[Rfam]
RNA sequence: AAAAAGAGUUUCUGUUGUGAGUGGCACACAUAGGGCAACUCAUUCCUUCUGUGUGUGUGUGAUCAACAUCAACAGAUUUUGGAAGCAUAAUUUUUUGGUACUUGGGGAGCUAGUGAUUGUUGGUCUUGGUAUCCUU
Numbered sequence: 001a002a003a004a005a006g007a008g009u010u011u012c013u014g015u016u017g018u019g020a021g022u023g024g025c026a027c028a029c030a031u032a033g034g035g036c037a038a039c040u041c042a043u044u045c046c047u048u049c050u051g052u053g054u055g056u057g058u059g060u061g062a063u064c065a066a067c068a069u070c071a072a073c074a075g076a077u078u079u080u081g082g083a084a085g086c087a088u089a090a091u092u093u094u095u096u097g098g099u100a101c102u103u104g105g106g107g108a109g110c111u112a113g114u115g116a117u118u119g120u121u122g123g124u125c126u127u128g129g130u131a132u133c134c135u136u
Stems, first nucleotide, its partner, number of pairs: 008086005013026005027057006034050002037047001058081002061078004104134003109130005115125004
Dot-bracket structure: .......((((((((((....)))))((((((.((.(.........).)).))))))((.((((..........)))).))))))).................(((..(((((.((((...))))))))).)))..
A member of the RNA family "U11 spliceosomal RNA" from Chinchilla lanigera, 136 nucleotides long. Pairs were carried over by alignment from the consensus structure, which is taken from published work. It scores 75 bits against the family's covariance model. Rfam classes the family as a spliceosomal small nuclear RNA. NCBI's taxonomy places the organism under Eukaryota, Eumetazoa, Teleostomi, Sarcopterygii, Chinchilla.